[Rfam]
RNA sequence: GGGUCUGUGAUGACUAGCCCACUGCGCAAGCUGAUCAGAGCCCGUUACGAGCUCUGCUGGAGACAUGUGUGCUGAUCACAGCCUGAGACCC
Numbered sequence: 001g002g003g004u005c006u007g008u009g010a011u012g013a014c015u016a017g018c019c020c021a022c023u024g025c026g027c028a029a030g031c032u033g034a035u036c037a038g039a040g041c042c043c044g045u046u047a048c049g050a051g052c053u054c055u056g057c058u059g060g061a062g063a064c065a066u067g068u069g070u071g072c073u074g075a076u077c078a079c080a081g082c083c084u085g086a087g088a089c090c091c
Stems, first nucleotide, its partner, number of pairs: 002090004036056006
Description:
The record is a 91-nucleotide RNA sequence from Oryzias javanicus, which matches "small Cajal body-specific RNA 18" in Rfam. Rfam links the family to the GO terms nucleolus, RNA processing and Cajal body. The family's RNA type in Rfam is small Cajal body RNA. From the family's description: scaRNAs are a specific class of small nuclear RNAs which localise to the Cajal bodies and guide the modification of RNA polymerase II transcribed spliceosomal RNAs U1, U2, U4, U5 and U12. This C/D box domain U91 (also known as U4-8) was identified by Darzacq and is predicted to guide the 2'O-ribose methylation of U4 snRNA C8. The organism belongs to Oryzias, within Eukaryota. The match comes from Rfam's covariance-model search (42 bits).